[Rfam]
The family of this 254-nucleotide RNA from Trifolium subterraneum is "MIR2655 microRNA precursor family". It scores 142 bits against the family's covariance model. Pairs were carried over by alignment from the consensus structure, which was predicted with RNAalifold. Rfam links the family to the GO terms RISC complex and miRNA-mediated post-transcriptional gene silencing. Rfam 15.1 lists 892 matches to the family in 5 species.
RNA sequence: CCCUUAUCUUUUAAAAGUUUCAAGUUGGUCCCUUAUCUUUAUUUUAGGUUUCAAGUUGGUCCUUUCUGUCAAAAUUUUUACUGUUACCGUUAAAUUUAGACAUGUGUCAUCUGUCCAAGUGUACCACGUGUCCAAAUUAGUUUGACACAUGUGUUCAAAUUUAACGGUAAUAGUAAAAAAAUUGACGGAAGGGACCAACAUGAAACCUAAAAUAAAGAUAAGGGAUCAACUUGAAACUUUUAAAAGAUAAGGGA
Numbered sequence: 001c002c003c004u005u006a007u008c009u010u011u012u013a014a015a016a017g018u019u020u021c022a023a024g025u026u027g028g029u030c031c032c033u034u035a036u037c038u039u040u041a042u043u044u045u046a047g048g049u050u051u052c053a054a055g056u057u058g059g060u061c062c063u064u065u066c067u068g069u070c071a072a073a074a075u076u077u078u079u080a081c082u083g084u085u086a087c088c089g090u091u092a093a094a095u096u097u098a099g100a101c102a103u104g105u106g107u108c109a110u111c112u113g114u115c116c117a118a119g120u121g122u123a124c125c126a127c128g129u130g131u132c133c134a135a136a137u138u139a140g141u142u143u144g145a146c147a148c149a150u151g152u153g154u155u156c157a158a159a160u161u162u163a164a165c166g167g168u169a170a171u172a173g174u175a176a177a178a179a180a181a182u183u184g185a186c187g188g189a190a191g192g193g194a195c196c197a198a199c200a201u202g203a204a205a206c207c208u209a210a211a212a213u214a215a216a217g218a219u220a221a222g223g224g225a226u227c228a229a230c231u232u233g234a235a236a237c238u239u240u241u242a243a244a245a246g247a248u249a250a251g252g253g254a
Stems, first nucleotide, its partner, number of pairs: 002252007023231003027227003031223013045209003